[Rfam]
A member of the RNA family "U5 spliceosomal RNA" from Papaver nudicaule, 113 nucleotides long. On this family, see Zwieb, Nucleic Acids Res 1997: "The uRNA database". The organism belongs to Papaver, within Eukaryota. Rfam classes the family as a spliceosomal small nuclear RNA. Its family is annotated with spliceosomal tri-snRNP complex assembly and U5 snRNP in the Gene Ontology.

RNA sequence: AGCCGUGCGGUAAGCACAACGCGAACUAUUCUUUCGCCUUUUACUAAAGAAUACCGUGUGCUUGCUAAGCGGCAUACGCCUAUUUUUGAAGGGUUUUCUCUUUUUUAAGAGCG
Numbered sequence: 001a002g003c004c005g006u007g008c009g010g011u012a013a014g015c016a017c018a019a020c021g022c023g024a025a026c027u028a029u030u031c032u033u034u035c036g037c038c039u040u041u042u043a044c045u046a047a048a049g050a051a052u053a054c055c056g057u058g059u060g061c062u063u064g065c066u067a068a069g070c071g072g073c074a075u076a077c078g079c080c081u082a083u084u085u086u087u088g089a090a091g092g093g094u095u096u097u098c099u100c101u102u103u104u105u106u107a108a109g110a111g112c113g
Stems, first nucleotide, its partner, number of pairs: 003072004009066010027053008092112001094110004